[Rfam]
RNA sequence: CAUGAAGACAAAUGUACUCAUUCUCGUACGAAGGCGCACACGCGAGGCGGUAUAGACCGUCCGGCUGAUGCCACGUGUGCGCGAAAGACAGGCCCCUCGAAGGGCCUUUUUUAUUGCCCUGAU
Numbered sequence: 001c002a003u004g005a006a007g008a009c010a011a012a013u014g015u016a017c018u019c020a021u022u023c024u025c026g027u028a029c030g031a032a033g034g035c036g037c038a039c040a041c042g043c044g045a046g047g048c049g050g051u052a053u054a055g056a057c058c059g060u061c062c063g064g065c066u067g068a069u070g071c072c073a074c075g076u077g078u079g080c081g082c083g084a085a086a087g088a089c090a091g092g093c094c095c096c097u098c099g100a101a102g103g104g105c106c107u108u109u110u111u112u113a114u115u116g117c118c119c120u121g122a123u
Stems, first nucleotide, its partner, number of pairs: 009026001030118001034082009046061005064071002088108001090107006
RNA: Rhizobiales sRNA Atu_C8